The family of this 57-nucleotide RNA sequence is "nhaA-I RNA". Pairs were carried over by alignment from the consensus structure, which is taken from published work.
RNA sequence: GGGUGCCAGGUCCCCGAAGGGAGCAGGCAGGGUUGAGCGUUGGUCGGGCCGCCAGCG
Numbered sequence: 001g002g003g004u005g006c007c008a009g010g011u012c013c014c015c016g017a018a019g020g021g022a023g024c025a026g027g028c029a030g031g032g033u034u035g036a037g038c039g040u041u042g043g044u045c046g047g048g049c050c051g052c053c054a055g056c057g
Stems, first nucleotide, its partner, number of pairs: 005028003009024001011022002038057007

Acidobacteria, Alphaproteobacteria, Betaproteobacteria and Gammaproteobacteria, Verrucomicrobia, cand. division NC10.